Small nucleolar RNA snR32: a 183-nucleotide RNA sequence from Lachancea mirantina. Rfam classes the family as an H/ACA-box small nucleolar RNA. For this family Rfam cites "SnR31, snR32, and snR33: three novel, non-essential snRNAs from Saccharomyces cerevisiae" (Balakin et al., Nucleic Acids Res, 1993).
RNA sequence: AACAUCAUUUUUAUCGCUCACAUUGGCCCAUAAUUUUCAAUUAGAGGAGUAGUUGCCCCGUUGAGGUUCUUCUGGUUUUAGGGUCGGUAAGAAGCGUAGAUAGAAUUUAUAAAGAUCGUUGCUGGGCGCCUGGCGUUGAUCCAUUUGGAUAGGAGACAUUGGGAAUCAGCUGUAUCUACAAAA
Numbered sequence: 001a002a003c004a005u006c007a008u009u010u011u012u013a014u015c016g017c018u019c020a021c022a023u024u025g026g027c028c029c030a031u032a033a034u035u036u037u038c039a040a041u042u043a044g045a046g047g048a049g050u051a052g053u054u055g056c057c058c059c060g061u062u063g064a065g066g067u068u069c070u071u072c073u074g075g076u077u078u079u080a081g082g083g084u085c086g087g088u089a090a091g092a093a094g095c096g097u098a099g100a101u102a103g104a105a106u107u108u109a110u111a112a113a114g115a116u117c118g119u120u121g122c123u124g125g126g127c128g129c130c131u132g133g134c135g136u137u138g139a140u141c142c143a144u145u146u147g148g149a150u151a152g153g154a155g156a157c158a159u160u161g162g163g164a165a166u167c168a169g170c171u172g173u174a175u176c177u178a179c180a181a182a183a
Base pairs, nucleotide, nucleotide: 015096016095017094022088023087024086025085026084027083028082029081036044037043045073046072047071048070049069051067053065114176115175117172118171129163130162133159135157136156137155140154141153142152